Overview
Rfam assigns this 156-nucleotide sequence from Rhodopseudomonas palustris to the family "speF leader". The family's RNA type in Rfam is cis-regulatory leader. The organism belongs to Rhodopseudomonas palustris, within Bacteria. Its family is annotated with regulation of gene expression in the Gene Ontology. Rfam's curators put it in the seed alignment.

RNA sequence: UGCCGGCUUUCCAUCAGCCGGCGCGAAUACCGAAGAGGCUUGUCCUUCAUUGCCAGUGAGCGGGCGGGAUCCUUCCCAACCAAUCCAAGGCAGCACUGCUCGUCCGAGCUGAUCGCUCGUCGCGCCUCCAUCGCGCGACGGCGCUGAAGCCGUCGG
Numbered sequence: 001u002g003c004c005g006g007c008u009u010u011c012c013a014u015c016a017g018c019c020g021g022c023g024c025g026a027a028u029a030c031c032g033a034a035g036a037g038g039c040u041u042g043u044c045c046u047u048c049a050u051u052g053c054c055a056g057u058g059a060g061c062g063g064g065c066g067g068g069a070u071c072c073u074u075c076c077c078a079a080c081c082a083a084u085c086c087a088a089g090g091c092a093g094c095a096c097u098g099c100u101c102g103u104c105c106g107a108g109c110u111g112a113u114c115g116c117u118c119g120u121c122g123c124g125c126c127u128c129c130a131u132c133g134c135g136c137g138a139c140g141g142c143g144c145u146g147a148a149g150c151c152g153u154c155g156g
Base pairs, nucleotide, nucleotide: 001023002022003021004020005019006018007017008016037054038053039052060136061135062134105119106118107117108116109115